RNA: mir-204 microRNA precursor family
RNA sequence: GUAUGACUCGUGGACUUCCCUUUGUCAUCCUAUGCCUGGGAUUAUAGAGAGGGCUGGGAAGGCAAAGGGACGUCCAAUUGUCAUCAAG
Numbered sequence: 001g002u003a004u005g006a007c008u009c010g011u012g013g014a015c016u017u018c019c020c021u022u023u024g025u026c027a028u029c030c031u032a033u034g035c036c037u038g039g040g041a042u043u044a045u046a047g048a049g050a051g052g053g054c055u056g057g058g059a060a061g062g063c064a065a066a067g068g069g070a071c072g073u074c075c076a077a078u079u080g081u082c083a084u085c086a087a088g
Stems, first nucleotide, its partner, number of pairs: 017070006024063002028059005034054004